[Rfam]
RNA sequence: UUGUUGGGUAGGAUAAUCCUUACCUGUUCCUCCUUUUGGAGGGCAGAUUGGAACAUGAUGAUUGGAGAUCGCAUGAUUCGUGAUUAAUAUCUCUGCAUUAAUCAGGACCUGCAACACCCUGAUUGCUCCUAUUAGAU
Numbered sequence: 001u002u003g004u005u006g007g008g009u010a011g012g013a014u015a016a017u018c019c020u021u022a023c024c025u026g027u028u029c030c031u032c033c034u035u036u037u038g039g040a041g042g043g044c045a046g047a048u049u050g051g052a053a054c055a056u057g058a059u060g061a062u063u064g065g066a067g068a069u070c071g072c073a074u075g076a077u078u079c080g081u082g083a084u085u086a087a088u089a090u091c092u093c094u095g096c097a098u099u100a101a102u103c104a105g106g107a108c109c110u111g112c113a114a115c116a117c118c119c120u121g122a123u124u125g126c127u128c129c130u131a132u133u134a135g136a137u
Base pairs, nucleotide, nucleotide: 024046025045026044028043029042030041031040032039033038075093076092080088081086099125100124101123102122103121104120105119106118
The family of this 137-nucleotide RNA from Molossus molossus is "U8 small nucleolar RNA". Lineage of the source: Eukaryota > Chordata > Gnathostomata > Sarcopterygii > Molossus. The match comes from Rfam's covariance-model search (123 bits). A reference for the family is Peculis et al. (2001), "The U8 snoRNA gene family: identification and characterization of distinct, functional U8 genes in Xenopus", Gene. Its family is annotated with nucleolus and RNA processing in the Gene Ontology.